A member of the RNA family "Actino-pnp RNA" from Pseudonocardia sulfidoxydans, 80 nucleotides long. It scores 61 bits against the family's covariance model. The source organism's lineage runs through Bacteria, Bacillati, Pseudonocardiales, Pseudonocardiaceae and Pseudonocardia sulfidoxydans. It is annotated as a cis-regulatory element.
RNA sequence: GCCGGUCCUCGGUAGUGGCUUCCGGACCCGCCCCGACCCGCUCGGGUGUGCGUCCCCGGGGGCUUCGAUCGAAGACCGGC
Numbered sequence: 001g002c003c004g005g006u007c008c009u010c011g012g013u014a015g016u017g018g019c020u021u022c023c024g025g026a027c028c029c030g031c032c033c034c035g036a037c038c039c040g041c042u043c044g045g046g047u048g049u050g051c052g053u054c055c056c057c058g059g060g061g062g063c064u065u066c067g068a069u070c071g072a073a074g075a076c077c078g079g080c
Base pairs, nucleotide, nucleotide: 001080002079003078004077005076006075007074009072010071011070012069013068017064018063019062020061021060022059023058024057025056